[Rfam]
RNA sequence: UAGCAGUACAAAGCGCCUGAACUGCCCCAUGGACGGAAUGAGGGACAGUUGACGAGGAGAGGGUUUAUCGAUUUAUCGGCGGAUGCCCUCCGGCUGAGCAUGACAGCCGCCAAGCUUCUGUAAAAAACACCAGGGUGACCUAGUGGACAAAAUCAGACGCGCCAUGCCCA
Numbered sequence: 001u002a003g004c005a006g007u008a009c010a011a012a013g014c015g016c017c018u019g020a021a022c023u024g025c026c027c028c029a030u031g032g033a034c035g036g037a038a039u040g041a042g043g044g045a046c047a048g049u050u051g052a053c054g055a056g057g058a059g060a061g062g063g064u065u066u067a068u069c070g071a072u073u074u075a076u077c078g079g080c081g082g083a084u085g086c087c088c089u090c091c092g093g094c095u096g097a098g099c100a101u102g103a104c105a106g107c108c109g110c111c112a113a114g115c116u117u118c119u120g121u122a123a124a125a126a127a128c129a130c131c132a133g134g135g136u137g138a139c140c141u142a143g144u145g146g147a148c149a150a151a152a153u154c155a156g157a158c159g160c161g162c163c164a165u166g167c168c169c170a
Stems, first nucleotide, its partner, number of pairs: 020050005026044003059090005068079004091109006114160002117157004128145003132141003
A member of the RNA family "glmS glucosamine-6-phosphate activated ribozyme aptamer" from Alkalicoccobacillus porphyridii, 170 nucleotides long. It is annotated as a riboswitch. The base pairs follow the family's consensus structure, which is taken from published work. The source organism's lineage runs through Bacteria, Bacillati, Bacilli, Caryophanales and Alkalicoccobacillus.